[Rfam]
RNA sequence: AUUUAUCAAAUUUUUAGACAAUUCUAACUAUUAAAGUGAUAUAUACCAUUCACGGAAGGAGUAUAAUAAAAUGCUUAAUCAAUAUACUGAACAUCAACCGACAACUUCAAAUAUUAUUAUUUUAUUAUACUCUUUAGGACUCGAACGUUAGUAAAUAUUUACUAAACGCUUUAAGUCCUAUUUCUGUUUGAAUGGGACUUGUAAA
Dot-bracket structure: ........................((....................((((((.(.(..((((.(((((((...................................))....)))))............))))...(((((....((((((((((....))))))).))..)...))))).....).).)))))).......))..

Rfam assigns this 205-nucleotide RNA from Staphylococcus aureus to the family "Listeria sRNA rli60". On this family, see Toledo-Arana et al., Nature 2009: "The Listeria transcriptional landscape from saprophytism to virulence". It scores 135 bits against the family's covariance model. By type it is a small RNA. Taxonomically the source falls in Staphylococcus aureus (Bacteria, Caryophanales, Staphylococcaceae, Staphylococcus).